[Rfam]
RNA: GA-cis RNA
RNA sequence: UAGAGGAAGAAACAAAAUGAACUAAGUUUGUUUUUAGAAUUUUUUCUACGAUUAGCCGCCGACAAAAGUACGGGGCAGUACAUAUU
Numbered sequence: 001u002a003g004a005g006g007a008a009g010a011a012a013c014a015a016a017a018u019g020a021a022c023u024a025a026g027u028u029u030g031u032u033u034u035u036a037g038a039a040u041u042u043u044u045u046c047u048a049c050g051a052u053u054a055g056c057c058g059c060c061g062a063c064a065a066a067a068g069u070a071c072g073g074g075g076c077a078g079u080a081c082a083u084a085u086u
Stems, first nucleotide, its partner, number of pairs: 008047005016032006055076003059072001063068001